The family of this 74-nucleotide RNA sequence from Crocodylus porosus is "Mammalian CPEB3 ribozyme". The match comes from Rfam's covariance-model search (35 bits).
RNA sequence: GUUGAAGUUUGAGGCCAUGGCAGAAGUACUCAUGGUAUGGCCUGUCAUAUUCCAACAAAUCGGCAAAUUCUGCU
Number, nucleotide and partner (000 for none) at each position: 001g000002u000003u000004g000005a000006a000007g000008u000009u000010u000011g000012a000013g042014g041015c040016c039017a000018u000019g074020g073021c072022a071023g070024a069025a068026g038027u037028a036029c000030u000031c000032a000033u000034g000035g000036u028037a027038u026039g016040g015041c014042c013043u000044g000045u000046c063047a000048u000049a060050u059051u058052c000053c000054a000055a000056c000057a000058a051059a050060u049061c000062g000063g046064c000065a000066a000067a000068u025069u024070c023071u022072g021073c020074u019

For this family Rfam cites "Autocatalytic RNA cleavage in the human beta-globin pre-mRNA promotes transcription termination" (Teixeira et al., Nature, 2004). The family's consensus secondary structure is taken from published work.